[Rfam]
RNA sequence: AUAAUACUUGGAGUUGUGCUGCUAUUUAAUGAGUGCAUAGUGAGGGGAGUACUGCUAAUACCUACACCACAUGCCUACAUCAACUAGAGCUUGCUUUACCUUGGUACAGUUUUUGGAUAA
Numbered sequence: 001a002u003a004a005u006a007c008u009u010g011g012a013g014u015u016g017u018g019c020u021g022c023u024a025u026u027u028a029a030u031g032a033g034u035g036c037a038u039a040g041u042g043a044g045g046g047g048a049g050u051a052c053u054g055c056u057a058a059u060a061c062c063u064a065c066a067c068c069a070c071a072u073g074c075c076u077a078c079a080u081c082a083a084c085u086a087g088a089g090c091u092u093g094c095u096u097u098a099c100c101u102u103g104g105u106a107c108a109g110u111u112u113u114u115g116g117a118u119a120a
Stems, first nucleotide, its partner, number of pairs: 006014003016055003021050003025046003033041002079105004085098005
Dot-bracket structure: .....(((...))).(((..(((.(((.....((.....))..))).)))..))).......................((((..(((((....)))))...))))...............
The record is a 120-nucleotide RNA from Otolemur garnettii, which matches "U4atac minor spliceosomal RNA" in Rfam. The literature on the family includes a 2008 paper in Nucleic Acids Res by Davila Lopez et al., "Computational screen for spliceosomal RNA genes aids in defining the phylogenetic distribution of major and minor spliceosomal components". Lineage of the source: Eukaryota > Craniata > Vertebrata > Galagidae > Otolemur. Pairs were carried over by alignment from the consensus structure, which is taken from published work. Rfam links the family to the GO terms U4atac snRNP, mRNA 5'-splice site recognition and pre-mRNA 5'-splice site binding. U4atac is an essential component of the minor U12-type spliceosome complex which is required for removal of the rarer class of eukaryotic introns (AT-AC, U12-type).